The family of this 98-nucleotide RNA from Ornithorhynchus anatinus is "Vault RNA".
A reference for the family is Stadler et al. (2009), "Evolution of Vault RNAs", Mol Biol Evol.
NCBI's taxonomy places the organism under Eukaryota, Bilateria, Gnathostomata, Tetrapoda, Ornithorhynchus.
The family's RNA type in Rfam is non-coding RNA gene.
Rfam 15.1 lists 2,873 matches to the family in 431 species.
Nucleotides: 098
Base pairs, nucleotide, nucleotide: 002093003092004091005090006089007088013082014081015080016079018078019077020076021075026072027071028070029069030068
Number, partner (000 for none) and nucleotide at each position: 001000g002093g003092g004091c005090c006089g007088g008000c009000u010000c011000u012000a013082g014081c015080u016079c017000a018078g019077c020076g021075g022000u023000u024000a025000c026072u027071u028070c029069g030068a031000a032000c033000g034000a035000a036000a037000g038000u039000g040000c041000u042000a043000c044000u045000u046000u047000c048000c049000a050000c051000u052000a053000a054000a055000u056000c057000u058000c059000u060000u061000c062000g063000g064000a065000g066000g067000u068030u069029c070028g071027a072026g073000c074000c075021c076020c077019g078018c079016g080015g081014g082013c083000g084000c085000u086000u087000u088007c089006c090005g091004g092003u093002c094000c095000u096000u097000u098000a